A member of the RNA family "Small Cajal body specific RNA 8" from Candidula unifasciata, 130 nucleotides long. The organism belongs to Candidula, within Eukaryota. The family's consensus secondary structure is taken from published work. It scores 71 bits against the family's covariance model. Gene Ontology terms of the family: RNA processing, Cajal body and nucleolus.
[Rfam]
RNA sequence: UGGAAGCCAGAUACAAGGCAGGCUGUAAUGACACUGCCCGUCUUCACUGGAGUUUCCUACAUGAUCCUUGCUCUCUGAUGACCUUAGUGGGGUCAAGGUUACACUGAGGACAGAUACGGAGCAGACAUGC
Number, nucleotide and partner (000 for none) at each position: 001u000002g057003g056004a055005a054006g053007c052008c000009a000010g000011a000012u000013a000014c000015a044016a043017g042018g041019c000020a000021g000022g037023c036024u000025g034026u000027a000028a000029u000030g000031a000032c000033a000034c025035u000036g023037c022038c000039c000040g000041u018042c017043u016044u015045c000046a000047c000048u000049g000050g000051a000052g007053u006054u005055u004056c003057c002058u000059a000060c000061a000062u000063g000064a000065u000066c000067c000068u124069u123070g122071c121072u120073c119074u118075c000076u000077g000078a000079u000080g000081a000082c109083c108084u107085u000086a000087g104088u103089g102090g000091g000092g000093u000094c000095a000096a000097g000098g000099u000100u000101a000102c089103a088104c087105u000106g000107a084108g083109g082110a000111c000112a000113g000114a000115u000116a000117c000118g074119g073120a072121g071122c070123a069124g068125a000126c000127a000128u000129g000130c000